[Rfam]
RNA sequence: UGGUGAGGUAGAGGCGCGAAAUGAAAAAAGUAUGCUCUGGGAGAAGGGUUGUAUCGACUGGAGACAAAAAGGUUCAUUUGCCGAAGCCGGCUGAGCCUGCAUUGAAUAAGUGCGGGACUGCCACGAUGCUUUUCGUGGAGGACUACUAUAAAA
Numbered sequence: 001u002g003g004u005g006a007g008g009u010a011g012a013g014g015c016g017c018g019a020a021a022u023g024a025a026a027a028a029a030g031u032a033u034g035c036u037c038u039g040g041g042a043g044a045a046g047g048g049u050u051g052u053a054u055c056g057a058c059u060g061g062a063g064a065c066a067a068a069a070a071g072g073u074u075c076a077u078u079u080g081c082c083g084a085a086g087c088c089g090g091c092u093g094a095g096c097c098u099g100c101a102u103u104g105a106a107u108a109a110g111u112g113c114g115g116g117a118c119u120g121c122c123a124c125g126a127u128g129c130u131u132u133u134c135g136u137g138g139a140g141g142a143c144u145a146c147u148a149u150a151a152a153a
Base pairs, nucleotide, nucleotide: 007147008146009145010144011143016081017080018079019078021077022076023075024074025073033066034065035063036062037061038060039059040058085092086091093119096116097115098114099113100112101111102110103109121138122137123136124135125134126133
Rfam assigns this 153-nucleotide RNA sequence from Alteribacillus bidgolensis to the family "Lysine riboswitch aptamer". Pairs were carried over by alignment from the consensus structure, which is taken from published work. Its family is annotated with lysine biosynthetic process in the Gene Ontology.